Rfam assigns this 151-nucleotide RNA sequence from Pseudomonas syringae to the family "radC RNA". The source organism's lineage runs through Bacteria, Gammaproteobacteria, Pseudomonadaceae, Pseudomonas and Pseudomonas syringae pv. syringae.
[Rfam]
RNA sequence: AUUCUCAAGACAUGUACCGCUGACGUUGUCAGCAACAUGCCCGGGUAGUCAGGAUCUCACGACUACGAUGCGUCCCACGCAUUGAUCCCUCCCAAAGUUCGCAAAGCUUCCGGAGGCGCGAACGAUCGGUGUUUCAAACGCCGAUGGAUGC
Numbered sequence: 001a002u003u004c005u006c007a008a009g010a011c012a013u014g015u016a017c018c019g020c021u022g023a024c025g026u027u028g029u030c031a032g033c034a035a036c037a038u039g040c041c042c043g044g045g046u047a048g049u050c051a052g053g054a055u056c057u058c059a060c061g062a063c064u065a066c067g068a069u070g071c072g073u074c075c076c077a078c079g080c081a082u083u084g085a086u087c088c089c090u091c092c093c094a095a096a097g098u099u100c101g102c103a104a105a106g107c108u109u110c111c112g113g114a115g116g117c118g119c120g121a122a123c124g125a126u127c128g129g130u131g132u133u134u135c136a137a138a139c140g141c142c143g144a145u146g147g148a149u150g151c
Stems, first nucleotide, its partner, number of pairs: 011039004019033006045066006053087004067083006118151003125145008